[Rfam]
RNA: MIR918 microRNA precursor family
RNA sequence: AAUGCGGGACGUCUGCGCCGCACAUGUCUCAGGAGGACAUCGCCACUAUUAGCAAGCUACUUCAGGGUAUCUCGGUCAGCAUUUCGUUUGGCAAGAUGUCCGCUUCAGGUACACGCCGCUCACGCGAUGAAGGCGUCAUCGCAUGAGCGGCGCGUACCCGGAGUGGACGUCUUGCCAAUCGAGAUGCUGACCGAGAUACCCUCCAGCAGCUUGCUACUACGGACGAUCUCUUCCUGAGACAUGUGCGGUGCAGACGUCUCGUAUU
Number, nucleotide and partner (000 for none) at each position: 001a265002a264003u263004g262005c261006g260007g259008g258009a257010c256011g255012u254013c253014u252015g251016c250017g249018c248019c247020g246021c245022a244023c243024a242025u241026g240027u239028c238029u237030c236031a235032g234033g233034a232035g231036g230037a229038c000039a227040u226041c225042g224043c000044c222045a000046c000047u219048a218049u000050u216051a215052g214053c213054a212055a211056g210057c209058u208059a000060c206061u205062u000063c000064a202065g201066g200067g199068u198069a197070u196071c195072u194073c193074g192075g191076u190077c189078a188079g187080c186081a185082u184083u183084u182085c181086g180087u000088u178089u177090g176091g175092c174093a173094a172095g171096a170097u169098g168099u167100c166101c165102g164103c163104u162105u161106c160107a000108g158109g157110u156111a155112c154113a000114c152115g151116c150117c149118g148119c147120u146121c145122a144123c000124g142125c141126g140127a139128u138129g137130a136131a000132g000133g000134c000135g000136u130137c129138a128139u127140c126141g125142c124143a000144u122145g121146a120147g119148c118149g117150g116151c115152g114153c000154g112155u111156a110157c109158c108159c000160g106161g105162a104163g103164u102165g101166g100167a099168c098169g097170u096171c095172u094173u093174g092175c091176c090177a089178a088179u000180c086181g085182a084183g083184a082185u081186g080187c079188u078189g077190a076191c075192c074193g073194a072195g071196a070197u069198a068199c067200c066201c065202u064203c000204c000205a061206g060207c000208a058209g057210c056211u055212u054213g053214c052215u051216a050217c000218u048219a047220c000221g000222g044223a000224c042225g041226a040227u039228c000229u037230c036231u035232u034233c033234c032235u031236g030237a029238g028239a027240c026241a025242u024243g023244u022245g021246c020247g019248g018249u017250g016251c015252a014253g013254a012255c011256g010257u009258c008259u007260c006261g005262u004263a003264u002265u001